RNA sequence: UCUAUAACUCAAGAUAUGGGCUGAACACUGAACAGUGUCUGGGCUGCAAGACAGAUUCGAACUUCUUCGUUGUUGCUAUAAUUUGGACUUGAAAAUGACAUUUUUAAAUCUUGGACUCCCAUUAAAGUUGUAGGCCUAUAUCUUACCUUUCCAUU
Numbered sequence: 001u002c003u004a005u006a007a008c009u010c011a012a013g014a015u016a017u018g019g020g021c022u023g024a025a026c027a028c029u030g031a032a033c034a035g036u037g038u039c040u041g042g043g044c045u046g047c048a049a050g051a052c053a054g055a056u057u058c059g060a061a062c063u064u065c066u067u068c069g070u071u072g073u074u075g076c077u078a079u080a081a082u083u084u085g086g087a088c089u090u091g092a093a094a095a096u097g098a099c100a101u102u103u104u105u106a107a108a109u110c111u112u113g114g115a116c117u118c119c120c121a122u123u124a125a126a127g128u129u130g131u132a133g134g135c136c137u138a139u140a141u142c143u144u145a146c147c148u149u150u151c152c153a154u155u
Stems, first nucleotide, its partner, number of pairs: 003153001006150002009145001011144010021133003025129001027128003035122003041119003045115001048112004054105002063097001072088003